[Rfam]
RNA sequence: UUCUUAUCAAGAGCGGCGGAGGAACAGGUCCUAUGAAGCCCGGCAACCAGAUCGAUGAUCUAGGUGCUAAUUCCUGCAGACGGCGAAAGCUGUACUGAGAGAUAAGAG
Number, nucleotide and partner (000 for none) at each position: 001u108002u107003c106004u105005u104006a103007u102008c101009a000010a000011g000012a000013g041014c000015g040016g039017c038018g000019g000020a000021g031022g030023a029024a000025c076026a075027g074028g073029u023030c022031c021032u000033a000034u000035g000036a000037a000038g017039c016040c015041c013042g068043g067044c066045a065046a000047c064048c063049a061050g060051a059052u058053c000054g000055a000056u000057g000058a052059u051060c050061u049062a000063g048064g047065u045066g044067c043068u042069a000070a000071u000072u100073c028074c027075u026076g025077c097078a096079g095080a093081c092082g091083g000084c000085g000086a000087a000088a000089g000090c000091u082092g081093u080094a000095c079096u078097g077098a000099g000100a072101g008102a007103u006104a005105a004106g003107a002108g001

Rfam assigns this 108-nucleotide RNA from Terribacillus saccharophilus to the family "SAM riboswitch aptamer (S box leader)". Taxonomically the source falls in Terribacillus (Bacteria, Bacillota, Bacilli, Caryophanales). Rfam describes the family as follows. The SAM riboswitch is found upstream of a number of genes which code for proteins involved in methionine or cysteine biosynthesis in Gram-positive bacteria. The literature on the family includes a 1998 paper in Mol Microbiol by Grundy and Henkin, "The S box regulon: a new global transcription termination control system for methionine and cysteine biosynthesis genes in gram-positive bacteria". A search with the family's covariance model found it, with a score of 82 bits. The base pairs follow the family's consensus structure, which is taken from published work.